RNA sequence: AUAAUGAUACAUCUAAGGUUGAAGCCGGCUCAUCCUGAACAGAGGCGGAGGUGAGAUUCCUAUGU
Numbered sequence: 001a002u003a004a005u006g007a008u009a010c011a012u013c014u015a016a017g018g019u020u021g022a023a024g025c026c027g028g029c030u031c032a033u034c035c036u037g038a039a040c041a042g043a044g045g046c047g048g049a050g051g052u053g054a055g056a057u058u059c060c061u062a063u064g065u
Stems, first nucleotide, its partner, number of pairs: 012062001013024002025048003029044003049061003
pemK RNA: a 65-nucleotide RNA from Anaerococcus nagyae. Lineage of the source: Bacteria > Bacillati > Tissierellia > Tissierellales > Anaerococcus. Rfam classes the family as a cis-regulatory element.